RNA: Small nucleolar RNA Z152/R70/R12/
RNA sequence: AUGGCGAUGAUGAGGCAAAACACCAUCGGUGUAAUUAGGGCAGUGGACAAGGCGAUUAACGUUGUCUUGCCGUGAUCCCAAUUUUUAACGACUUCUCCUUCCACUGAGCUUU
Numbered sequence: 001a002u003g004g005c006g007a008u009g010a011u012g013a014g015g016c017a018a019a020a021c022a023c024c025a026u027c028g029g030u031g032u033a034a035u036u037a038g039g040g041c042a043g044u045g046g047a048c049a050a051g052g053c054g055a056u057u058a059a060c061g062u063u064g065u066c067u068u069g070c071c072g073u074g075a076u077c078c079c080a081a082u083u084u085u086u087a088a089c090g091a092c093u094u095c096u097c098c099u100u101c102c103a104c105u106g107a108g109c110u111u112u
Base pairs, nucleotide, nucleotide: 001112003110004109005108